RNA sequence: AUUACAAAAUGAGAGAUUUGAUUCUCUUUAUUUUCGAGAAACAAGAGGUACAGUGAAGCUGGCAAGAUAUCGUUUCAUUCGUCAGCUCAUUAUAUUGGCUCUUUGAUUGUUGCUUGUCCACAC
Numbered sequence: 001a002u003u004a005c006a007a008a009a010u011g012a013g014a015g016a017u018u019u020g021a022u023u024c025u026c027u028u029u030a031u032u033u034u035c036g037a038g039a040a041a042c043a044a045g046a047g048g049u050a051c052a053g054u055g056a057a058g059c060u061g062g063c064a065a066g067a068u069a070u071c072g073u074u075u076c077a078u079u080c081g082u083c084a085g086c087u088c089a090u091u092a093u094a095u096u097g098g099c100u101c102u103u104u105g106a107u108u109g110u111u112g113c114u115u116g117u118c119c120a121c122a123c
Stems, first nucleotide, its partner, number of pairs: 006034006013026004061119002063116004069107004081099004
RNA: Small nucleolar RNA snoR111
Organism: Apium graveolens